The record is a 50-nucleotide sequence from Nocardia arthritidis, which matches "L31-Actinobacteria ribosomal protein leader" in Rfam. A search with the family's covariance model found it, with a score of 56 bits. By type it is a cis-regulatory leader. Clan: Ribosomal Protein L31 Leader clan.

RNA sequence: UCGGUUCCGGUUCACGUCCUGGCGAAAUACGCGAGGGCGACCCGGCGACC
Numbered sequence: 001u002c003g004g005u006u007c008c009g010g011u012u013c014a015c016g017u018c019c020u021g022g023c024g025a026a027a028u029a030c031g032c033g034a035g036g037g038c039g040a041c042c043c044g045g046c047g048a049c050c
Stems, first nucleotide, its partner, number of pairs: 003050003007045004015039006022032002